[Rfam]
RNA sequence: GGCUGGUCUGAGUGCAGCAGUGUUUACAACUAAUUGAUCACAACCAGUUAACAGAUUUCUUUGCUCCUCCUCCACUCCCACUGCUUCACUUAACUAGUAAAA
Numbered sequence: 001g002g003c004u005g006g007u008c009u010g011a012g013u014g015c016a017g018c019a020g021u022g023u024u025u026a027c028a029a030c031u032a033a034u035u036g037a038u039c040a041c042a043a044c045c046a047g048u049u050a051a052c053a054g055a056u057u058u059c060u061u062u063g064c065u066c067c068u069c070c071u072c073c074a075c076u077c078c079c080a081c082u083g084c085u086u087c088a089c090u091u092a093a094c095u096a097g098u099a100a101a102a
Stems, first nucleotide, its partner, number of pairs: 002098006010091002014087001016082002020078001022077001028065001030063001032061002

A member of the RNA family "Y RNA" from Macaca nemestrina, 102 nucleotides long. About the family: Y RNAs are components of the Ro ribonucleoprotein particle (Ro RNP), in association with Ro60 and La proteins. The Y RNAs and Ro60 and La proteins are well conserved, but the function of the Ro RNP is not known. In humans the RNA component can be one of four small RNAs -- hY1, hY3, hY4 and hY5. These small RNAs are predicted to fold into a conserved secondary structure containing three stem structures. Lineage of the source: Eukaryota > Chordata > Catarrhini > Cercopithecidae > Macaca.